mir-4449 microRNA precursor family: a 69-nucleotide RNA sequence from Bos taurus. The family's consensus secondary structure was predicted with RNAalifold.
[Rfam]
RNA sequence: AGCAGCCCUCGGCGGCCUGGGAGGGACGGGCGGCGGUGCCCGUCCCGGGGCCGCUCGAGGCACACUGCG
Numbered sequence: 001a002g003c004a005g006c007c008c009u010c011g012g013c014g015g016c017c018u019g020g021g022a023g024g025g026a027c028g029g030g031c032g033g034c035g036g037u038g039c040c041c042g043u044c045c046c047g048g049g050g051c052c053g054c055u056c057g058a059g060g061c062a063c064a065c066u067g068c069g
Stems, first nucleotide, its partner, number of pairs: 002068003007060005012054007020046002025044008